[Rfam]
RNA sequence: GAGGUUCAAAUGAUGAUUAUUUGCAUAGUUCAAAUGAUAAUAAUCUUAUGUGAUUAUAAAUCUAUUUUUAGUCUUUCGCUCCUAUCUGAUGAACUCU
Numbered sequence: 001g002a003g004g005u006u007c008a009a010a011u012g013a014u015g016a017u018u019a020u021u022u023g024c025a026u027a028g029u030u031c032a033a034a035u036g037a038u039a040a041u042a043a044u045c046u047u048a049u050g051u052g053a054u055u056a057u058a059a060a061u062c063u064a065u066u067u068u069u070a071g072u073c074u075u076u077c078g079c080u081c082c083u084a085u086c087u088g089a090u091g092a093a094c095u096c097u
Base pairs, nucleotide, nucleotide: 004094005093006092007091008090